A member of the RNA family "glmS glucosamine-6-phosphate activated ribozyme aptamer" from Pelosinus fermentans, 199 nucleotides long. The organism belongs to Pelosinus fermentans, within Bacteria. By type it is a riboswitch. A search with the family's covariance model found it, with a score of 77 bits.

[Rfam]
RNA sequence: UAACUCAUUAUAGCGCUGGAGCUUGCGUGACAUAGUACCACAUCUCGGUGGCAGCCUGUAUAAGGGCGUGUUGACGUAAAGCUGACGAGGAAGAGGUUUAUCGAGACGAUUCAGCGGAUACCUCUCGGCUACUCUGCGGCCGUUAAACAGCGACAAAACUGUAAGGCAACUUGCAGGACAAAACGACUGAGGCAGAUUG
Dot-bracket structure: ...................(((((.(.(.............................................).)..)))))........(((((....(.((......)).)......)))))(((((.......))))).....((((.......(((((((....)))))))........).)))..........